[Rfam]
RNA sequence: AAUGGAGUAGGAAUUGACGCGUUAAGUGCCAGAGAGACGGAGAGUUGCUCGACGGACGAAUGCUAGUCAGCGAUGUCAGUUCCGCAUCUCGCCGUU
Dot-bracket structure: (((((....(((((((((((((...((.((...(((...[.[.[...)))...))))...((.....))))).)))))))))).].].]..)))))
This 96-nucleotide sequence from Pediococcus stilesii belongs to the Rfam family "THF (Tetrahydrofolate) riboswitch aptamer".
A search with the family's covariance model found it, with a score of 73 bits.
The literature on the family includes a 2010 paper in Chem Biol by Ames et al., "A eubacterial riboswitch class that senses the coenzyme tetrahydrofolate".